A member of the RNA family "Metazoan signal recognition particle RNA" from Chrysemys picta, 285 nucleotides long. The family's consensus secondary structure is taken from published work. Its Rfam clan is "SRP clan".

RNA sequence: GCCGGGCGCCGUGGCUUGUGAUCCCAGCUCCUAGGAGGCUGAGGCUGGCGGAUCACUUGAGCUUAGGAGUUCUGGGCUGCAGUGGGCUAUGCCGAUCGGGUGUCCGCACUAAGUUCGGCAUCAAUAUGGUGAUCCCUGGGAAACUUCAGGUUGCCUAAGGAGGGGUGAACCGGCCCAGGUCGGGAAUGGAGCAGAUCAAAACUCCCGUGCCGAUCAGUAGUGGGAUCGCGCCUGUGAAUAGCCACUGCAGCGUAGCCUGGGCAAGACAGUGAGACACGGUCUCUU
Numbered sequence: 001g002c003c004g005g006g007c008g009c010c011g012u013g014g015c016u017u018g019u020g021a022u023c024c025c026a027g028c029u030c031c032u033a034g035g036a037g038g039c040u041g042a043g044g045c046u047g048g049c050g051g052a053u054c055a056c057u058u059g060a061g062c063u064u065a066g067g068a069g070u071u072c073u074g075g076g077c078u079g080c081a082g083u084g085g086g087c088u089a090u091g092c093c094g095a096u097c098g099g100g101u102g103u104c105c106g107c108a109c110u111a112a113g114u115u116c117g118g119c120a121u122c123a124a125u126a127u128g129g130u131g132a133u134c135c136c137u138g139g140g141a142a143a144c145u146u147c148a149g150g151u152u153g154c155c156u157a158a159g160g161a162g163g164g165g166u167g168a169a170c171c172g173g174c175c176c177a178g179g180u181c182g183g184g185a186a187u188g189g190a191g192c193a194g195a196u197c198a199a200a201a202c203u204c205c206c207g208u209g210c211c212g213a214u215c216a217g218u219a220g221u222g223g224g225a226u227c228g229c230g231c232c233u234g235u236g237a238a239u240a241g242c243c244a245c246u247g248c249a250g251c252g253u254a255g256c257c258u259g260g261g262c263a264a265g266a267c268a269g270u271g272a273g274a275c276a277c278g279g280u281c282u283c284u285u
Stems, first nucleotide, its partner, number of pairs: 001039003004017004022036003041283007053272005061262007072255003076251009086242005092236001097234007104224002107222005113215001115213007122153004127148003131144001133142001135140001154160002162205005172197002175194001180189003